[Rfam]
RNA sequence: AACCAGCCAAUAAUCUUGUUGCAAUAGUUGGAGGUCUAGUCAAGAUGC
Numbered sequence: 001a002a003c004c005a006g007c008c009a010a011u012a013a014u015c016u017u018g019u020u021g022c023a024a025u026a027g028u029u030g031g032a033g034g035u036c037u038a039g040u041c042a043a044g045a046u047g048c
Stems, first nucleotide, its partner, number of pairs: 001035001003033001007031002010029001011026002014045005
A member of the RNA family "Exoribonuclease-resistant RNA (xrRNA) plant-infecting virus (class 3)", 48 nucleotides long. By type it is a cis-regulatory element. Rfam links the family to the GO term viral RNA genome replication. Rfam's curators write: Exoribonuclease-resistant RNA (xrRNA) plant-infecting virus (class 3) is a ncRNA that was reported in Plant viruses. Rfam's curators put it in the seed alignment.